[Rfam]
RNA sequence: CUGCGGGGAUGAUCACCCUGAACUCUCUCUUGCUGAUGGCUCAGUGAAGUUUCAUUUCCAAUUCUCUCUGAGUGGC
Numbered sequence: 001c002u003g004c005g006g007g008g009a010u011g012a013u014c015a016c017c018c019u020g021a022a023c024u025c026u027c028u029c030u031u032g033c034u035g036a037u038g039g040c041u042c043a044g045u046g047a048a049g050u051u052u053c054a055u056u057u058c059c060a061a062u063u064c065u066c067u068c069u070g071a072g073u074g075g076c
Stems, first nucleotide, its partner, number of pairs: 001075004

This 76-nucleotide RNA from Sinosuthora webbiana belongs to the Rfam family "Small nucleolar RNA SNORD26". It scores 53 bits against the family's covariance model. The base pairs follow the family's consensus structure, which was predicted with PFOLD. The organism belongs to Sinosuthora, within Eukaryota. Its Rfam clan is "SNORD26 clan". By type it is a C/D-box small nucleolar RNA.